[Rfam]
RNA sequence: GUGGGAUAUGGUGACAUGUACCCUGAAACUAUUGGAGGCAAAAUUGUGGGGUCCCUCUGUGCCAUUGCUGGAGUACUCACCAUCUCACUUCCAGUGCCUGUCAUUGUCUCCAAC
Dot-bracket structure: ((.((..((((.((((.((((...............((.(........((...........))..........).))................)))).)))).))))..)).))